Rfam assigns this 69-nucleotide RNA sequence from Paenibacillus naphthalenovorans to the family "Pistol ribozyme". The source organism's lineage runs through Bacteria, Bacillati, Bacillota, Caryophanales and Paenibacillus. The literature on the family includes a 2020 paper in Angew Chem Int Ed Engl by Teplova et al., "Crucial Roles of Two Hydrated Mg(2+) Ions in Reaction Catalysis of the Pistol Ribozyme".
RNA sequence: ACUCGUGCCAGCGAGUUUAAAUAGACCAAUAGGCUGGCAGCGUUCCACUCAUAAAGAGUGGAGGAGGUA
Numbered sequence: 001a002c003u004c005g006u007g008c009c010a011g012c013g014a015g016u017u018u019a020a021a022u023a024g025a026c027c028a029a030u031a032g033g034c035u036g037g038c039a040g041c042g043u044u045c046c047a048c049u050c051a052u053a054a055a056g057a058g059u060g061g062a063g064g065a066g067g068u069a
Base pairs, nucleotide, nucleotide: 001016002015003014004013006039007038008037009036010035011034025068026067027066033041043063044062045061046060047059048058049057050056